[Rfam]
RNA sequence: CGCCGAGUCCUGCCGCCGCCCGGAUGACCGGUCGACAGGAGUGGAUCGGCAGGAGUGGAGGACCCGAGCACGACGGGCCGCCGGUACGUCAGUUCCGAGCGGUCCUUGGGGUGAAGCCGCACAGGUGCGGCCGGGCAACUUCGCCAGCCCGAAUCCGACAGGUCAUCCUUCACAGGCGGCUGACGAAGGGUU
Numbered sequence: 001c002g003c004c005g006a007g008u009c010c011u012g013c014c015g016c017c018g019c020c021c022g023g024a025u026g027a028c029c030g031g032u033c034g035a036c037a038g039g040a041g042u043g044g045a046u047c048g049g050c051a052g053g054a055g056u057g058g059a060g061g062a063c064c065c066g067a068g069c070a071c072g073a074c075g076g077g078c079c080g081c082c083g084g085u086a087c088g089u090c091a092g093u094u095c096c097g098a099g100c101g102g103u104c105c106u107u108g109g110g111g112u113g114a115a116g117c118c119g120c121a122c123a124g125g126u127g128c129g130g131c132c133g134g135g136c137a138a139c140u141u142c143g144c145c146a147g148c149c150c151g152a153a154u155c156c157g158a159c160a161g162g163u164c165a166u167c168c169u170u171c172a173c174a175g176g177c178g179g180c181u182g183a184c185g186a187a188g189g190g191u192u
Stems, first nucleotide, its partner, number of pairs: 001178004008054008055173006065108004109156003117130004133150004